This 226-nucleotide RNA from Adineta ricciae belongs to the Rfam family "Small nucleolar RNA U3".
Its family is annotated with nucleolus and RNA processing in the Gene Ontology.
RNA sequence: AAGAUUGUACUUCACAGGAUCAUUUUCUGUAGUACAUAUCGACAAAACACCCAUAGCCAAAGAAGACCCAAACAACCCACGAUGACGAGUGGCAGUGGUUCUUCUUGAGCGUGAAGUAGGAUGGGGCUGCUCUCUUCUCGAGAGCUCGGCCUGCUUCCUUUGAUGAUCGCACCUUGUUGCGUCCUCGUGAUGCGGCAAGGAGGGAAGCGACCACAUUCAGAGUGGU
Numbered sequence: 001a002a003g004a005u006u007g008u009a010c011u012u013c014a015c016a017g018g019a020u021c022a023u024u025u026u027c028u029g030u031a032g033u034a035c036a037u038a039u040c041g042a043c044a045a046a047a048c049a050c051c052c053a054u055a056g057c058c059a060a061a062g063a064a065g066a067c068c069c070a071a072a073c074a075a076c077c078c079a080c081g082a083u084g085a086c087g088a089g090u091g092g093c094a095g096u097g098g099u100u101c102u103u104c105u106u107g108a109g110c111g112u113g114a115a116g117u118a119g120g121a122u123g124g125g126g127c128u129g130c131u132c133u134c135u136u137c138u139c140g141a142g143a144g145c146u147c148g149g150c151c152u153g154c155u156u157c158c159u160u161u162g163a164u165g166a167u168c169g170c171a172c173c174u175u176g177u178u179g180c181g182u183c184c185u186c187g188u189g190a191u192g193c194g195g196c197a198a199g200g201a202g203g204g205a206a207g208c209g210a211c212c213a214c215a216u217u218c219a220g221a222g223u224g225g226u
Base pairs, nucleotide, nucleotide: 003040004039005038006036007035008034009033010032011031015029016028017027018026019025051065054063077225078224079223080222095214096213097212098211099210100209101207102206103205104204105203106202109170110169111168119158120157121156125152126151129145130144131143132142133141173199174198175197176196177195178194179193180192181191182190183189
The organism belongs to Adineta, within Eukaryota. Small nucleolar RNAs (snoRNAs) are involved in the processing and modification of rRNA in the nucleolus. There are two main classes of snoRNAs: the box C/D class, and the box H/ACA class. U3 snoRNA is a member of the box C/D class. Indeed, the box C/D element is a subset of the six short sequence elements found in all U3 snoRNAs, namely boxes A, A', B, C, C', and D. The U3 snoRNA secondary structure is characterised by a small 5' domain (with boxes A and A'), and a larger 3' domain (with boxes B, C, C', and D), the two domains being linked by a single-stranded hinge.